[Rfam]
RNA: Mammalian CPEB3 ribozyme
RNA sequence: CCAAGAGUUCAAGGCCAGAGCAGAAGUACUCACUGUGCAGCCAUGUCAGAUUCCAGUGCAUCUCUGAAUUCUACU
Dot-bracket structure: ............[[[...((.(((((((.......))).]]].....((((.(....).)))).....)))).))